[Rfam]
RNA sequence: AGCGGGUCUCUCCGCAUGGCAAUUUCAAGCAACGGGUCAGGGGCGGAAGCCAGCAGCCCACUUGGGAAAGUCAGUGCCGGAGGUCUGGCUCGCUACC
Numbered sequence: 001a002g003c004g005g006g007u008c009u010c011u012c013c014g015c016a017u018g019g020c021a022a023u024u025u026c027a028a029g030c031a032a033c034g035g036g037u038c039a040g041g042g043g044c045g046g047a048a049g050c051c052a053g054c055a056g057c058c059c060a061c062u063u064g065g066g067a068a069a070g071u072c073a074g075u076g077c078c079g080g081a082g083g084u085c086u087g088g089c090u091c092g093c094u095a096c097c
Stems, first nucleotide, its partner, number of pairs: 004091005009083006015074001017073004023067007034059004042051003
This 97-nucleotide RNA from Conchiformibius steedae belongs to the Rfam family "Bacterial small signal recognition particle RNA". NCBI's taxonomy places the organism under Bacteria, Pseudomonadota, Betaproteobacteria, Neisseriales, Conchiformibius. The family's consensus secondary structure is taken from published work. A reference for the family is Rosenblad et al. (2003), "SRPDB: Signal Recognition Particle Database", Nucleic Acids Res. Rfam classes the family as a non-coding RNA gene.